[Rfam]
Rfam assigns this 65-nucleotide RNA to the family "Pistol ribozyme".
The sequence is in the family's curated seed alignment.
Its family is annotated with catalytic activity in the Gene Ontology.
The base pairs follow the family's consensus structure, which is taken from published work.
A reference for the family is Teplova et al. (2020), "Crucial Roles of Two Hydrated Mg(2+) Ions in Reaction Catalysis of the Pistol Ribozyme", Angew Chem Int Ed Engl.
RNA sequence: ACUCGACUAAGCGAGAAUAAAAAGGCUUUAGGCUUAGAGCGUUCGCCCUUCGGGGCGGGGUAGUA
Numbered sequence: 001a002c003u004c005g006a007c008u009a010a011g012c013g014a015g016a017a018u019a020a021a022a023a024g025g026c027u028u029u030a031g032g033c034u035u036a037g038a039g040c041g042u043u044c045g046c047c048c049u050u051c052g053g054g055g056c057g058g059g060g061u062a063g064u065a
Stems, first nucleotide, its partner, number of pairs: 002015003007037005025064003032040001042059007